[Rfam]
RNA sequence: CUCUAAUCUCUGAUCUUUGUCUAAGGUCAAGUUUAAUAUCCGUUCUUAUCAGUUAAAUAUCUUUUACAUCCUUGACUUGAAGAUGUCAUCUUAAAGAGAUUUUUGGGACCAAAAGAUGGGUUGCAACUAUUUCUAUCUAUCCUAUGCAUCUGCCUGGUAUUGCAGUGUCUCCAGAAGCAGCACACCAA
Numbered sequence: 001c002u003c004u005a006a007u008c009u010c011u012g013a014u015c016u017u018u019g020u021c022u023a024a025g026g027u028c029a030a031g032u033u034u035a036a037u038a039u040c041c042g043u044u045c046u047u048a049u050c051a052g053u054u055a056a057a058u059a060u061c062u063u064u065u066a067c068a069u070c071c072u073u074g075a076c077u078u079g080a081a082g083a084u085g086u087c088a089u090c091u092u093a094a095a096g097a098g099a100u101u102u103u104u105g106g107g108a109c110c111a112a113a114a115g116a117u118g119g120g121u122u123g124c125a126a127c128u129a130u131u132u133c134u135a136u137c138u139a140u141c142c143u144a145u146g147c148a149u150c151u152g153c154c155u156g157g158u159a160u161u162g163c164a165g166u167g168u169c170u171c172c173a174g175a176a177g178c179a180g181c182a183c184a185c186c187a188a
Base pairs, nucleotide, nucleotide: 007026008025009024012021013020014019047066048065051062052061068084069083070082072080073079074078113143115141116140117139118138119137120136125134146181147180150177151176154174155173156172157171
This 188-nucleotide RNA from Nipponia nippon belongs to the Rfam family "U2 spliceosomal RNA". About the family: U2 is a small nuclear RNA (snRNA) component of the spliceosome (involved in pre-mRNA splicing). Complementary binding between U2 snRNA (in an area lying towards the 5' end but 3' to hairpin I) and the branchpoint sequence (BPS) of the intron results the bulging out of an unpaired adenosine, on the BPS, which initiates a nucleophilic attack at the intronic 5' splice site, thus starting the first of two transesterification reactions that mediate splicing. A search with the family's covariance model found it, with a score of 73 bits.